Shown here is a 275-nucleotide sequence from Oryza nivara, a member of the family "MIR821 microRNA precursor family". The source organism's lineage runs through Eukaryota, Viridiplantae, Euphyllophyta, Poales and Oryza. It scores 250 bits against the family's covariance model. The family's consensus secondary structure was predicted with RNAalifold.

RNA sequence: GAUUUAAACUAAAAAAGUCAUCAACAAAAAAGUCAUAUAACUCAUUAAGAUCUACAACUUUUAUUUUUGUCAUUUCUUUAUCCGACAAAGUGUUAGUAACAUUGUUCACAAAAUUUACACAUCUGUGUUAUAGUUUAUAAAACCAGAUAAGAGAUAUGUCAAUUUUGUGAACAAUGUUACUAUCACUUUAUCGGAUGAAAAAGUAACCAAAAUAAAAGUUUUAGAUCUUGAUGAGUUAUUGAACUUUGUUGUUGAUGACUUUUUCAGUUGAAAUC
Number, nucleotide and partner (000 for none) at each position: 001g000002a000003u000004u000005u000006a000007a000008a000009c000010u000011a000012a000013a000014a262015a261016a260017g259018u258019c257020a256021u255022c000023a253024a252025c000026a250027a249028a000029a000030a246031a245032g244033u243034c000035a000036u000037a239038u238039a237040a236041c235042u234043c000044a232045u231046u230047a229048a228049g227050a226051u225052c224053u223054a000055c000056a220057a219058c218059u217060u216061u215062u214063a213064u212065u211066u210067u209068u000069g207070u206071c000072a204073u203074u202075u201076c000077u199078u198079u197080a196081u195082c000083c193084g192085a191086c000087a189088a188089a187090g186091u185092g184093u000094u182095a181096g180097u179098a178099a177100c000101a175102u174103u173104g172105u171106u170107c169108a168109c167110a166111a165112a164113a000114u162115u161116u000117a159118c158119a157120c000121a155122u154123c000124u000125g000126u000127g000128u000129u000130a000131u145132a000133g143134u142135u141136u140137a000138u000139a000140a136141a135142a134143c133144c000145a131146g000147a000148u000149a000150a000151g000152a000153g000154a122155u121156a000157u119158g118159u117160c000161a115162a114163u000164u112165u111166u110167g109168u108169g107170a106171a105172c104173a103174a102175u101176g000177u099178u098179a097180c096181u095182a094183u000184c092185a091186c090187u089188u088189u087190a000191u085192c084193g083194g000195a081196u080197g079198a078199a077200a000201a075202a074203g073204u072205a000206a070207c069208c000209a067210a066211a065212a064213u063214a062215a061216a060217a059218g058219u057220u056221u000222u000223a053224g052225a051226u050227c049228u048229u047230g046231a045232u044233g000234a042235g041236u040237u039238a038239u037240u000241g000242a000243a033244c032245u031246u030247u000248g000249u027250u026251g000252u024253u023254g000255a021256u020257g019258a018259c017260u016261u015262u014263u000264u000265c000266a000267g000268u000269u000270g000271a000272a000273a000274u000275c000